[Rfam]
RNA sequence: AUAUCUCCUUAAUCGUUGGUUUAGGCACUUACAAUUAUAGAGAUAUUUGUGCUUUUUU
Numbered sequence: 001a002u003a004u005c006u007c008c009u010u011a012a013u014c015g016u017u018g019g020u021u022u023a024g025g026c027a028c029u030u031a032c033a034a035u036u037a038u039a040g041a042g043a044u045a046u047u048u049g050u051g052c053u054u055u056u057u058u
Base pairs, nucleotide, nucleotide: 001046002045003044004043005042006041007040010037011036012035013034015032019028020027
This 58-nucleotide sequence from Staphylococcus sp. HGB0015 belongs to the Rfam family "Staphylococcus sRNA sau-5949". The family's RNA type in Rfam is small RNA.